This 158-nucleotide RNA from Streptomyces sp. CdTB01 belongs to the Rfam family "c-di-AMP riboswitch aptamer (ydaO/yuaA leader)". The source organism's lineage runs through Bacteria, Actinomycetes, Kitasatosporales, Streptomycetaceae and Streptomyces. Pairs were carried over by alignment from the consensus structure. Rfam links the family to the GO terms cyclic-di-AMP binding and regulation of gene expression.
[Rfam]
RNA sequence: CGCACCAACUCACCCGUGUACGGCAGGAGCGGGGGACCCACAGGUACAACGCCUGUUCCGGUCUCCGGAACGGCUAGGGGUACAGCCGCGACCAGCGCGCGGCCGGGCAUCUCCAGCCCGCACCCGACAGCUCACCUCGCAGGCGCCGGAGAGGAAUU
Numbered sequence: 001c002g003c004a005c006c007a008a009c010u011c012a013c014c015c016g017u018g019u020a021c022g023g024c025a026g027g028a029g030c031g032g033g034g035g036a037c038c039c040a041c042a043g044g045u046a047c048a049a050c051g052c053c054u055g056u057u058c059c060g061g062u063c064u065c066c067g068g069a070a071c072g073g074c075u076a077g078g079g080g081u082a083c084a085g086c087c088g089c090g091a092c093c094a095g096c097g098c099g100c101g102g103c104c105g106g107g108c109a110u111c112u113c114c115a116g117c118c119c120g121c122a123c124c125c126g127a128c129a130g131c132u133c134a135c136c137u138c139g140c141a142g143g144c145g146c147c148g149g150a151g152a153g154g155a156a157u158u
Stems, first nucleotide, its partner, number of pairs: 003145001005143002010028002029140006039077001078125003086102004105119004